The record is a 78-nucleotide sequence from Candidatus Vecturithrix granuli, which matches "c-di-GMP-I-GGC riboswitch aptamer" in Rfam. It scores 60 bits against the family's covariance model. Pairs were carried over by alignment from the consensus structure, which is taken from published work.
Nucleotides: 078
Base pairs, nucleotide, nucleotide: 004074011036012035016031017030018029019028020027021026034064039071040070041069042068044067045066046065048061049060
Number, partner (000 for none) and nucleotide at each position: 001000c002000c003000u004074g005000a006000g007000a008000a009000a010000a011036c012035c013000a014000a015000a016031c017030c018029u019028a020027c021026c022000g023000u024000g025000a026021g027020g028019u029018g030017g031016g032000g033000a034064c035012g036011g037000a038000a039071a040070g041069c042068u043000a044067c045066g046065g047000a048061u049060c050000u051000u052000u053000u054000c055000a056000u057000a058000a059000a060049g061048a062000c063000a064034g065046c066045c067044g068042g069041g070040u071039u072000a073000c074004c075000u076000c077000a078000a